[Rfam]
RNA sequence: CUGUUUGCGGUUGGAGCAUCAUCAAGAUUCACAAUCUUUUAAGGCUUUUGUGGGGCUGGUCCCUUUCGAAUUCGUUCCAGACGGCCUUUGAUCUGGGAAUCUUGAUGAUGCUGCAGCGGCAAUAAA
Dot-bracket structure: .........((((.((((((((((((((((.((............................................................)).)))))))))))))))).)))).........
Numbered sequence: 001c002u003g004u005u006u007g008c009g010g011u012u013g014g015a016g017c018a019u020c021a022u023c024a025a026g027a028u029u030c031a032c033a034a035u036c037u038u039u040u041a042a043g044g045c046u047u048u049u050g051u052g053g054g055g056c057u058g059g060u061c062c063c064u065u066u067c068g069a070a071u072u073c074g075u076u077c078c079a080g081a082c083g084g085c086c087u088u089u090g091a092u093c094u095g096g097g098a099a100u101c102u103u104g105a106u107g108a109u110g111c112u113g114c115a116g117c118g119g120c121a122a123u124a125a126a
Stems, first nucleotide, its partner, number of pairs: 010117004015112016032095002
mir-172 microRNA precursor family: a 126-nucleotide RNA sequence from Juglans regia. The literature on the family includes a 2002 paper in Plant Physiol by Mette et al., "Short RNAs can identify new candidate transposable element families in Arabidopsis". The family has 11 seed sequences and 2,076 matches in Rfam 15.1. Rfam describes the family as follows. mir-172 has been experimentally verified in Arabidopsis thaliana. This family is thought to target mRNAs coding for APETALA2-like transcription factors. Pairs were carried over by alignment from the consensus structure, which was predicted with PFOLD. The source organism's lineage runs through Eukaryota, Gunneridae, fabids, Fagales and Juglans.